Annotation: A member of the RNA family "SAH (S-adenosyl-L-homocysteine) riboswitch aptamer" from Caldimonas brevitalea, 73 nucleotides long. The base pairs follow the family's consensus structure, which is taken from published work. Rfam 15.1 lists 1,354 matches to the family in 1,132 species. The organism belongs to Caldimonas, within Bacteria.

RNA sequence: GCUUCCGAGGAGCGUUGCAAGGCCGCCCGGCCCCAGGCUCGGAACUUCGUCUUUGCAACUGCGCUCACCCGUA
Numbered sequence: 001g002c003u004u005c006c007g008a009g010g011a012g013c014g015u016u017g018c019a020a021g022g023c024c025g026c027c028c029g030g031c032c033c034c035a036g037g038c039u040c041g042g043a044a045c046u047u048c049g050u051c052u053u054u055g056c057a058a059c060u061g062c063g064c065u066c067a068c069c070c071g072u073a
Stems, first nucleotide, its partner, number of pairs: 003044006021032004